[Rfam]
Shown here is a 274-nucleotide RNA sequence from Oryza barthii, a member of the family "MIR821 microRNA precursor family". The organism belongs to Oryza, within Eukaryota. The base pairs follow the family's consensus structure, which was predicted with RNAalifold. The literature on the family includes a 2006 paper in FEBS Lett by Luo et al., "Rice embryogenic calli express a unique set of microRNAs, suggesting regulatory roles of microRNAs in plant post-embryogenic development".
RNA sequence: GAUUUCAACUAAAAAAGUCAUCAACAAAAAAGUUGUAUAACUCAUCAAGAUCUAUAAUUUUUAUUUUUGGCAUUUCUUCAUCAGACAAAGUGAUAGUAACAUUGUUCACAAAAUUCACAUAUCUCUCAUCUGGUUUAUAAACUAUAACAGAGAUAUGUAAUUUUUUUGAACAAUGUUACUAGCACUUUGUCAGAUGAACAAAUGGAAAAAAUAAAAGUUAUAGAUCUUGAUGAGUUAUACAACUUUGUUGUUGAUGAAUUUUUUAAUUGAAAUC
Numbered sequence: 001g002a003u004u005u006c007a008a009c010u011a012a013a014a015a016a017g018u019c020a021u022c023a024a025c026a027a028a029a030a031a032g033u034u035g036u037a038u039a040a041c042u043c044a045u046c047a048a049g050a051u052c053u054a055u056a057a058u059u060u061u062u063a064u065u066u067u068u069g070g071c072a073u074u075u076c077u078u079c080a081u082c083a084g085a086c087a088a089a090g091u092g093a094u095a096g097u098a099a100c101a102u103u104g105u106u107c108a109c110a111a112a113a114u115u116c117a118c119a120u121a122u123c124u125c126u127c128a129u130c131u132g133g134u135u136u137a138u139a140a141a142c143u144a145u146a147a148c149a150g151a152g153a154u155a156u157g158u159a160a161u162u163u164u165u166u167u168g169a170a171c172a173a174u175g176u177u178a179c180u181a182g183c184a185c186u187u188u189g190u191c192a193g194a195u196g197a198a199c200a201a202a203u204g205g206a207a208a209a210a211a212u213a214a215a216a217g218u219u220a221u222a223g224a225u226c227u228u229g230a231u232g233a234g235u236u237a238u239a240c241a242a243c244u245u246u247g248u249u250g251u252u253g254a255u256g257a258a259u260u261u262u263u264u265a266a267u268u269g270a271a272a273u274c
Base pairs, nucleotide, nucleotide: 014261015260016259018257019256020255021254023252024251026249027248030245031244032243033242034241035240036239037238038237039236040235041234042233044231045230046229047228048227049226050225051224052223053222055220056219057218058217059216060215061214062213063212064211065210066209067208071204072203073202074201075200077198078197079196080195081194084191085190086189087188088187089186090185091184092183094181095180096179097178098177099176101174102173103172104171105170106169107168108167110165111164112163115160117158118157119156120155121154122153131144132143133142134141135140